[Rfam]
Rfam assigns this 85-nucleotide sequence to the family "c-di-GMP-II-GAG riboswitch aptamer". The sequence is in the family's curated seed alignment.

RNA sequence: GCGUUGGCGGGAGGCUCUGACACGCGGCCCAGAUCCGUGCCGCCGGGACCGCGCCGAGCCACUGGCGAGACCGACCCGCCUGUGC
Numbered sequence: 001g002c003g004u005u006g007g008c009g010g011g012a013g014g015c016u017c018u019g020a021c022a023c024g025c026g027g028c029c030c031a032g033a034u035c036c037g038u039g040c041c042g043c044c045g046g047g048a049c050c051g052c053g054c055c056g057a058g059c060c061a062c063u064g065g066c067g068a069g070a071c072c073g074a075c076c077c078g079c080c081u082g083u084g085c
Stems, first nucleotide, its partner, number of pairs: 001085004006080006013060003023053005029047001039071001041067004

Its Rfam clan is "c-di-GMP_II riboswitch clan". The base pairs follow the family's consensus structure, which is taken from published work. Gene Ontology terms of the family: regulation of gene expression and cyclic-di-GMP binding.